L31-Actinobacteria ribosomal protein leader: a 48-nucleotide sequence from Jiangella gansuensis.
A reference for the family is Eckert and Weinberg (2020), "Discovery of 20 novel ribosomal leader candidates in bacteria and archaea", BMC Microbiol.
The family's RNA type in Rfam is cis-regulatory leader.
It is one of the family's seed sequences.
Taxonomically the source falls in Jiangella gansuensis (Bacteria, Actinomycetes, Jiangellales, Jiangellaceae).
RNA sequence: UUGGUUCCGGUUCACGGUUCGGCACCCUGCCGCACCGACCCGGCGGCC
Numbered sequence: 001u002u003g004g005u006u007c008c009g010g011u012u013c014a015c016g017g018u019u020c021g022g023c024a025c026c027c028u029g030c031c032g033c034a035c036c037g038a039c040c041c042g043g044c045g046g047c048c
Stems, first nucleotide, its partner, number of pairs: 003048003007043004015037004020032004
Clan: Ribosomal Protein L31 Leader clan.